The record is a 125-nucleotide RNA sequence from Propionibacterium australiense, which matches "FMN riboswitch aptamer (RFN element)" in Rfam. Rfam describes the family as follows. The RFN element is a highly conserved domain that is found frequently in the 5'-untranslated regions of prokaryotic mRNAs that encode for flavin mononucleotide (FMN) biosynthesis and transport proteins. The match comes from Rfam's covariance-model search (89 bits).
RNA sequence: UGUCAUGUCCCGGGGACGGUGGAAACCCGUACCGGCGGUGACAGUCCGCGACCCGGCCCCCCGGCCGGUUGAUCUGGUGGAACCCCAGAACCGACAGUCAGAGUCUGGAUGGAAGGUACAUGACA
Number, nucleotide and partner (000 for none) at each position: 001u000002g000003u123004c122005a121006u120007g119008u118009c116010c115011c000012g000013g000014g000015g000016a000017c029018g028019g027020u000021g000022g000023a000024a000025a000026c000027c019028c018029g017030u000031a104032c103033c093034g092035g049036c048037g047038g046039u000040g000041a000042c000043a000044g091045u090046c038047c037048g036049c035050g000051a000052c000053c068054c067055g000056g000057c000058c000059c000060c000061c000062c000063g000064g000065c000066c000067g054068g053069u000070u000071g000072a000073u089074c088075u087076g086077g085078u000079g000080g000081a000082a000083c000084c000085c077086c076087a075088g074089a073090a045091c044092c034093g033094a000095c107096a106097g105098u000099c000100a000101g000102a000103g032104u031105c097106u096107g095108g000109a000110u000111g000112g000113a000114a000115g010116g009117u000118a008119c007120a006121u005122g004123a003124c000125a000